[Rfam]
RNA: MIR2629 microRNA precursor family
Organism: Medicago truncatula
RNA sequence: UGCCGAGGAAAUUUUCAGUAGUUAACUGCAGCCGGUUUUCUAAAAUUUCGGCAGUUAACUACCGAGGGGCAU
Numbered sequence: 001u002g003c004c005g006a007g008g009a010a011a012u013u014u015u016c017a018g019u020a021g022u023u024a025a026c027u028g029c030a031g032c033c034g035g036u037u038u039u040c041u042a043a044a045a046u047u048u049c050g051g052c053a054g055u056u057a058a059c060u061a062c063c064g065a066g067g068g069g070c071a072u
Stems, first nucleotide, its partner, number of pairs: 012068002015065002018062012